Annotation: Rfam assigns this 108-nucleotide RNA from Durio zibethinus to the family "Small nucleolar RNA snoR104". Gene Ontology terms of the family: nucleolus and RNA processing. The literature on the family includes a 2002 paper in Curr Biol by Marker et al., "Experimental RNomics: identification of 140 candidates for small non-messenger RNAs in the plant Arabidopsis thaliana". Lineage of the source: Eukaryota > Spermatophyta > Magnoliopsida > Pentapetalae > Durio.
[Rfam]
RNA sequence: ACUUAAUAUCGAAAAGCUGAGGUGUUACCUUUUCCAGUCUUAUUUCUGUAGUUUCUUGCUUGUAGUGCUUGAGUGAGUACUGCAGGUCCUAACUGUCCAAAGACAGGA
Number, nucleotide and partner (000 for none) at each position: 001a030002c000003u000004u000005a026006a025007u024008a023009u022010c021011g000012a000013a000014a000015a000016g000017c000018u000019g000020a000021g010022g009023u008024g007025u006026u005027a000028c000029c000030u001031u000032u000033u000034c000035c000036a000037g000038u000039c000040u000041u000042a000043u000044u000045u101046c000047u099048g000049u000050a000051g000052u000053u000054u000055c000056u000057u000058g087059c086060u085061u084062g083063u082064a081065g080066u000067g078068c077069u076070u000071g000072a000073g000074u000075g000076a069077g068078u067079a000080c065081u064082g063083c062084a061085g060086g059087u058088c000089c000090u000091a000092a000093c000094u000095g000096u000097c000098c000099a047100a000101a045102g000103a000104c000105a000106g000107g000108a000